The record is a 107-nucleotide RNA from Prunus armeniaca, which matches "Plant small nucleolar RNA R71" in Rfam.

RNA sequence: AUAUUAGCAUGUGGACACUUAAUGUACAUCUCUAUAUAUCCUUCCCAUGCUUCAUGGAACUCUUCAUUAGGCUUCUGAGUAAAUGUCAUGAUUUCCUGCUUGUAAUU
Numbered sequence: 001a002u003a004u005u006a007g008c009a010u011g012u013g014g015a016c017a018c019u020u021a022a023u024g025u026a027c028a029u030c031u032c033u034a035u036a037u038a039u040c041c042u043u044c045c046c047a048u049g050c051u052u053c054a055u056g057g058a059a060c061u062c063u064u065c066a067u068u069a070g071g072c073u074u075c076u077g078a079g080u081a082a083a084u085g086u087c088a089u090g091a092u093u094u095c096c097u098g099c100u101u102g103u104a105a106u107u
Base pairs, nucleotide, nucleotide: 001107004104005102006101057074058073060071

The match comes from Rfam's covariance-model search (40 bits). Its family is annotated with nucleolus and RNA processing in the Gene Ontology. The source organism's lineage runs through Eukaryota, Streptophytina, Rosaceae, Amygdaloideae and Prunus.